[Rfam]
RNA: RT-15 RNA
RNA sequence: CAGCGUCUGCUGCAUGACCGUCAUGGCGAUCAUGCCCGUACGCCUUUUGAAUCUGGUCGCGCCGCUGGCUCACAAGGCCACCGUCAGGCACGCCAGGGAUACCACCAGCCACGGCUGGCACUGGUCCCGUGCAGCCUCCAGGGUGAUCGAUCUCCAUCUUCGCCCUGGCGGUGUGAAUAGCGCGAUACGACG
Numbered sequence: 001c002a003g004c005g006u007c008u009g010c011u012g013c014a015u016g017a018c019c020g021u022c023a024u025g026g027c028g029a030u031c032a033u034g035c036c037c038g039u040a041c042g043c044c045u046u047u048u049g050a051a052u053c054u055g056g057u058c059g060c061g062c063c064g065c066u067g068g069c070u071c072a073c074a075a076g077g078c079c080a081c082c083g084u085c086a087g088g089c090a091c092g093c094c095a096g097g098g099a100u101a102c103c104a105c106c107a108g109c110c111a112c113g114g115c116u117g118g119c120a121c122u123g124g125u126c127c128c129g130u131g132c133a134g135c136c137u138c139c140a141g142g143g144u145g146a147u148c149g150a151u152c153u154c155c156a157u158c159u160u161c162g163c164c165c166u167g168g169c170g171g172u173g174u175g176a177a178u179a180g181c182g183c184g185a186u187a188c189g190a191c192g
Base pairs, nucleotide, nucleotide: 004042005041006040012035013034014033015032016031017030019028020027021026057185058184059183060182061181062180063083064082066080067079068078069077070076088132089131090130091129096128097127098126099125102124103123105118106117107116108115109114135171136170138168139167140166141165142164143163144162145161146160149158150157151156